Small nucleolar RNA SNORA53: a 246-nucleotide sequence from Aquarana catesbeiana. It is annotated as an H/ACA-box small nucleolar RNA. NCBI's taxonomy places the organism under Eukaryota, Opisthokonta, Tetrapoda, Batrachia, Aquarana. Pairs were carried over by alignment from the consensus structure, which was predicted with RNAalifold. Rfam's curators write: The snoRNA ACA53 belongs to the H/ACA family of pseudouridylation guide snoRNAs.

RNA sequence: AACAUGCUCCCUUAGAUCCACCUUUGUGGGUGUUUUAACUUGUUCUGAGUUCAGCUGGAUCAAUCUAGCAGUUCCAGUUCAGUGUCACCCAGCAACUUGUUUGGUUGUACAGUCAAAGGUGCUUGAGUCAUUGGCAUGUAAGAAUAAUAUACCUGCAGGUUGGCUAUUGAUGUUCUGUUGACAGCGGUUGCAACAUUAAUGCUGUGCUGCUUUUUACCAAUGGGACUUGGCUAAUAUGCGGACAGA
Numbered sequence: 001a002a003c004a005u006g007c008u009c010c011c012u013u014a015g016a017u018c019c020a021c022c023u024u025u026g027u028g029g030g031u032g033u034u035u036u037a038a039c040u041u042g043u044u045c046u047g048a049g050u051u052c053a054g055c056u057g058g059a060u061c062a063a064u065c066u067a068g069c070a071g072u073u074c075c076a077g078u079u080c081a082g083u084g085u086c087a088c089c090c091a092g093c094a095a096c097u098u099g100u101u102u103g104g105u106u107g108u109a110c111a112g113u114c115a116a117a118g119g120u121g122c123u124u125g126a127g128u129c130a131u132u133g134g135c136a137u138g139u140a141a142g143a144a145u146a147a148u149a150u151a152c153c154u155g156c157a158g159g160u161u162g163g164c165u166a167u168u169g170a171u172g173u174u175c176u177g178u179u180g181a182c183a184g185c186g187g188u189u190g191c192a193a194c195a196u197u198a199a200u201g202c203u204g205u206g207c208u209g210c211u212u213u214u215u216a217c218c219a220a221u222g223g224g225a226c227u228u229g230g231c232u233a234a235u236a237u238g239c240g241g242a243c244a245g246a
Base pairs, nucleotide, nucleotide: 002139003138004137005136006135007134008133011127012126013125014124015123019121020120021119022118023117024116025115026114027091028090029089030088031087032086038083039082040081045077046076047075049074052071054069055068058065092108093107094106095105096104097103153241154240155239156238157237160234162232163231164230165229174224175223176222177221178220179219180218186215187214193205194204195203